[Rfam]
RNA sequence: AUAGCGUAAACGAAUAGUGCUCGUAUAAAUUUGAGGAUAAGGCUCAAAAGUAUCUACCAGGCAACCGUAAAUUACCUGACUACGAGUGAAAGUAUGUCUAGG
Numbered sequence: 001a002u003a004g005c006g007u008a009a010a011c012g013a014a015u016a017g018u019g020c021u022c023g024u025a026u027a028a029a030u031u032u033g034a035g036g037a038u039a040a041g042g043c044u045c046a047a048a049a050g051u052a053u054c055u056a057c058c059a060g061g062c063a064a065c066c067g068u069a070a071a072u073u074a075c076c077u078g079a080c081u082a083c084g085a086g087u088g089a090a091a092g093u094a095u096g097u098c099u100a101g102g
Base pairs, nucleotide, nucleotide: 018088019087020086021085022084023083024082025081030048031047032046033045034044035043058078059077060076061075063073064072
RNA: Purine riboswitch aptamer
Organism: Propionispora vibrioides